[Rfam]
RNA sequence: GGAUGACAUCUGUAAGCUAGAGAUGUUACCCGAUACAAUCUUCCUACAAAAAAAUUCUGUGCUUUCCUGUUCGCCGUUCUGAAGAGAAGUCUGCGAACCUCAAACUGACAGAAACAGUG
Numbered sequence: 001g002g003a004u005g006a007c008a009u010c011u012g013u014a015a016g017c018u019a020g021a022g023a024u025g026u027u028a029c030c031c032g033a034u035a036c037a038a039u040c041u042u043c044c045u046a047c048a049a050a051a052a053a054a055u056u057c058u059g060u061g062c063u064u065u066c067c068u069g070u071u072c073g074c075c076g077u078u079c080u081g082a083a084g085a086g087a088a089g090u091c092u093g094c095g096a097a098c099c100u101c102a103a104a105c106u107g108a109c110a111g112a113a114a115c116a117g118u119g
Stems, first nucleotide, its partner, number of pairs: 001031002005027007056112003069098006076091001078089001080087001
Dot-bracket structure: ((..(((((((.........)))))))..))........................(((..........((((((.(.(.(......).).).))))))...........))).......
RNA: Small nucleolar RNA snoR104
Organism: Spinacia oleracea